[Rfam]
RNA sequence: AUUCUCCCUCCUGCAUUGCCGAUGGUUCGGCAGCAGCCCGCAGCCAGGGUGUCAAGGCUGCCGCGGGUUCCACCCGCGCCACCCACCAGUUCGCCUCGGCAUCUCACCGGCGAACGCUGCCCACCGGGGCAUCGAUGC
Numbered sequence: 001a002u003u004c005u006c007c008c009u010c011c012u013g014c015a016u017u018g019c020c021g022a023u024g025g026u027u028c029g030g031c032a033g034c035a036g037c038c039c040g041c042a043g044c045c046a047g048g049g050u051g052u053c054a055a056g057g058c059u060g061c062c063g064c065g066g067g068u069u070c071c072a073c074c075c076g077c078g079c080c081a082c083c084c085a086c087c088a089g090u091u092c093g094c095c096u097c098g099g100c101a102u103c104u105c106a107c108c109g110g111c112g113a114a115c116g117c118u119g120c121c122c123a124c125c126g127g128g129g130c131a132u133c134g135a136u137g138c
Base pairs, nucleotide, nucleotide: 011036012035013034018031019030020029021028022027040061041060042059043058044057045056048083049082050081051080062078063077064076065075066074067073110138111137112136118131119130120129121128122127
Dot-bracket structure: ..........(((....(((((....)))))..)))...((((((..[[[[....))))))((((((.....)))))).]]]]..........................(((.....(((((....)))))....)))
A member of the RNA family "radC RNA" from Xanthomonas euvesicatoria, 138 nucleotides long. The family's RNA type in Rfam is cis-regulatory element. It is one of the family's seed sequences. The family has 148 seed sequences and 500 matches in Rfam 15.1.